[Rfam]
Rfam assigns this 102-nucleotide RNA from Exiguobacterium chiriqhucha to the family "Purine riboswitch aptamer". Rfam describes the family as follows. Riboswitches are metabolite binding domains within certain messenger RNAs that serve as precision sensors for their corresponding targets. Rfam links the family to the GO term purine nucleobase biosynthetic process.

RNA sequence: AACAAUUAAAAAUUAUUUUGCCGUAUAAUAUCGGGAAUAUGGCCCGAGAGUCUCUACGAAAUCACCUUAAAUGAUUUCACUACGGCGAGACAUAGAUCAGGG
Numbered sequence: 001a002a003c004a005a006u007u008a009a010a011a012a013u014u015a016u017u018u019u020g021c022c023g024u025a026u027a028a029u030a031u032c033g034g035g036a037a038u039a040u041g042g043c044c045c046g047a048g049a050g051u052c053u054c055u056a057c058g059a060a061a062u063c064a065c066c067u068u069a070a071a072u073g074a075u076u077u078c079a080c081u082a083c084g085g086c087g088a089g090a091c092a093u094a095g096a097u098c099a100g101g102g
Stems, first nucleotide, its partner, number of pairs: 018088008029049001031047005058078007